[Rfam]
RNA sequence: AAAGUUGUUGCAGUUAAAAAGCUCGUAGUUGAAACUUGGGCCUGGCUGGCGGGUCCGCCUCACCGCGUGCACUCGUCCGGCCGGGCCUUCCUUCUGAAGAACCUCAUGCCCUUCACUGGGCGUGCUGGGGAAUCAGGACUUUUACUUUGAAAAAAUUAGAGUGUUCAAAGCAGGCCUUUGCUCGAAUACGUUAGCAUGGAAUAAUAAAAUAGGGCGUGCGUUUCUAUUUUGUUGGUUUCUAGAGACGCCGCAAUGAUUAACAGGAACAGUCGGGGGCAUCAGUAUUCCGUUGUCAGAGGUGAAAUUCUUGGAUUUACGGAAGACUAACUACUGCGAAAGCAUUUGCCAAGGAUGUUUUCAUUAAUCAGUGAACGAAAGUUAGGGGAUCGAAGACGAUCAGAUACCGUCGUAGUCUUAACCGUAAACUAUGCCGACUAGGGAUCGGGCGAUGUUCUUUUUCUGACUCGCUCGGCACCUUACGAGAAAUCAAAGUUUUUGGGUUCUGGGGGGAUUAUGGUCGCAAGGCUGAAACUUAAAGAAAU
Numbered sequence: 001a002a003a004g005u006u007g008u009u010g011c012a013g014u015u016a017a018a019a020a021g022c023u024c025g026u027a028g029u030u031g032a033a034a035c036u037u038g039g040g041c042c043u044g045g046c047u048g049g050c051g052g053g054u055c056c057g058c059c060u061c062a063c064c065g066c067g068u069g070c071a072c073u074c075g076u077c078c079g080g081c082c083g084g085g086c087c088u089u090c091c092u093u094c095u096g097a098a099g100a101a102c103c104u105c106a107u108g109c110c111c112u113u114c115a116c117u118g119g120g121c122g123u124g125c126u127g128g129g130g131a132a133u134c135a136g137g138a139c140u141u142u143u144a145c146u147u148u149g150a151a152a153a154a155a156u157u158a159g160a161g162u163g164u165u166c167a168a169a170g171c172a173g174g175c176c177u178u179u180g181c182u183c184g185a186a187u188a189c190g191u192u193a194g195c196a197u198g199g200a201a202u203a204a205u206a207a208a209a210u211a212g213g214g215c216g217u218g219c220g221u222u223u224c225u226a227u228u229u230u231g232u233u234g235g236u237u238u239c240u241a242g243a244g245a246c247g248c249c250g251c252a253a254u255g256a257u258u259a260a261c262a263g264g265a266a267c268a269g270u271c272g273g274g275g276g277c278a279u280c281a282g283u284a285u286u287c288c289g290u291u292g293u294c295a296g297a298g299g300u301g302a303a304a305u306u307c308u309u310g311g312a313u314u315u316a317c318g319g320a321a322g323a324c325u326a327a328c329u330a331c332u333g334c335g336a337a338a339g340c341a342u343u344u345g346c347c348a349a350g351g352a353u354g355u356u357u358u359c360a361u362u363a364a365u366c367a368g369u370g371a372a373c374g375a376a377a378g379u380u381a382g383g384g385g386a387u388c389g390a391a392g393a394c395g396a397u398c399a400g401a402u403a404c405c406g407u408c409g410u411a412g413u414c415u416u417a418a419c420c421g422u423a424a425a426c427u428a429u430g431c432c433g434a435c436u437a438g439g440g441a442u443c444g445g446g447c448g449a450u451g452u453u454c455u456u457u458u459u460c461u462g463a464c465u466c467g468c469u470c471g472g473c474a475c476c477u478u479a480c481g482a483g484a485a486a487u488c489a490a491a492g493u494u495u496u497u498g499g500g501u502u503c504u505g506g507g508g509g510g511a512u513u514a515u516g517g518u519c520g521c522a523a524g525g526c527u528g529a530a531a532c533u534u535a536a537a538g539a540a541a542u
Stems, first nucleotide, its partner, number of pairs: 011505003019502001021373001023371002028365003263359004267354002270351002275347004281325002285321006292314001296307003333340002378419006388412001392408004430501003433494003437477003442472008451464003481488002507534003516527004
RNA: Eukaryotic small subunit ribosomal RNA, nucleotides 601 to 1142